[Rfam]
RNA sequence: CUGGAGUAUGACAUUAAUGAAUCGCACGUCACGUUUCACCAGCCUACUACUACUAAACGCCUCUUUUGCGCGCGGUAGUCUGGUGGGCGACGUUUUGCGAUAGUCAUCUUCCGGUAACGAAUCAAACCCGCGCCAUGCGCGGGUUUUUUU
Numbered sequence: 001c002u003g004g005a006g007u008a009u010g011a012c013a014u015u016a017a018u019g020a021a022u023c024g025c026a027c028g029u030c031a032c033g034u035u036u037c038a039c040c041a042g043c044c045u046a047c048u049a050c051u052a053c054u055a056a057a058c059g060c061c062u063c064u065u066u067u068g069c070g071c072g073c074g075g076u077a078g079u080c081u082g083g084u085g086g087g088c089g090a091c092g093u094u095u096u097g098c099g100a101u102a103g104u105c106a107u108c109u110u111c112c113g114g115u116a117a118c119g120a121a122u123c124a125a126a127c128c129c130g131c132g133c134c135a136u137g138c139g140c141g142g143g144u145u146u147u148u149u150u
Stems, first nucleotide, its partner, number of pairs: 004111001006109001008107003014103003018099002027089004032085004050078005058072003124146010